[Rfam]
RNA sequence: CUGGUCGGACACGACUGGCGAGGGUGGGUCACCACCGGGGAGUGAAGCCGGGACAUCGACCGCCUGGGUGGCCUCA
Number, nucleotide and partner (000 for none) at each position: 001c000002u000003g048004g000005u046006c000007g000008g000009a000010c044011a043012c042013g000014a000015c039016u038017g064018g063019c062020g061021a000022g000023g000024g035025u034026g033027g032028g000029u000030c000031a000032c027033c026034a025035c024036c000037g000038g016039g015040g000041a000042g012043u011044g010045a000046a005047g000048c003049c000050g000051g000052g000053a000054c070055a069056u068057c067058g000059a000060c000061c020062g019063c018064c017065u000066g000067g057068g056069u055070g054071g000072c000073c000074u000075c000076a000